[Rfam]
RNA sequence: ACUGUGGAGUGUACAAGAACUUGUGAGUAGCAUCUAAAUUUAUUUAGUGUGAAAGCAUACACAUUGAAGCAGUAA
Numbered sequence: 001a002c003u004g005u006g007g008a009g010u011g012u013a014c015a016a017g018a019a020c021u022u023g024u025g026a027g028u029a030g031c032a033u034c035u036a037a038a039u040u041u042a043u044u045u046a047g048u049g050u051g052a053a054a055g056c057a058u059a060c061a062c063a064u065u066g067a068a069g070c071a072g073u074a075a
Base pairs, nucleotide, nucleotide: 001073002072003071004070005069009062010061011060012059013058022057023056024055030050031049032048035046036045
RNA: RAGATH-18 RNA